[Rfam]
RNA: Small nucleolar RNA SNORD73
Organism: Sinosuthora webbiana
RNA sequence: AAUGAAUGAUGACAAAAUGUUUUGGUCCCAGAUGAUGUGGAAUGAUUUCAUUUCUGACCUCUUUCUGACAUU
Numbered sequence: 001a002a003u004g005a006a007u008g009a010u011g012a013c014a015a016a017a018u019g020u021u022u023u024g025g026u027c028c029c030a031g032a033u034g035a036u037g038u039g040g041a042a043u044g045a046u047u048u049c050a051u052u053u054c055u056g057a058c059c060u061c062u063u064u065c066u067g068a069c070a071u072u
Base pairs, nucleotide, nucleotide: 001072002071003070004069